A member of the RNA family "U5 spliceosomal RNA" from Pampusana beccarii, 119 nucleotides long.
RNA sequence: AUACUCUGGUUUCUGUUCAGAUGGUAUAAAUCUUUCACCUCUUACUAAAGGUUUCUGUGGAGAGGAACAGGCACGAGUGUCAAUGGAUUCUUGGAAGCUUCUUCUUUUAAUUUAGAGCU
Numbered sequence: 001a002u003a004c005u006c007u008g009g010u011u012u013c014u015g016u017u018c019a020g021a022u023g024g025u026a027u028a029a030a031u032c033u034u035u036c037a038c039c040u041c042u043u044a045c046u047a048a049a050g051g052u053u054u055c056u057g058u059g060g061a062g063a064g065g066a067a068c069a070g071g072c073a074c075g076a077g078u079g080u081c082a083a084u085g086g087a088u089u090c091u092u093g094g095a096a097g098c099u100u101c102u103u104c105u106u107u108u109a110a111u112u113u114a115g116a117g118c119u
Stems, first nucleotide, its partner, number of pairs: 003078004009068006016061004028054008095119001097118004
Dot-bracket structure: ..((((..((((((.((((........((((((((...........))))))))...)))).))))))......))))................(.((((..............)))))
It scores 63 bits against the family's covariance model. Pairs were carried over by alignment from the consensus structure, which is taken from published work. U5 RNA is a component of both types of known spliceosome. The precise function of this molecule is unknown, though it is known that the 5' loop is required for splice site selection and p220 binding, and that both the 3' stem-loop and the Sm site are important for Sm protein binding and cap methylation.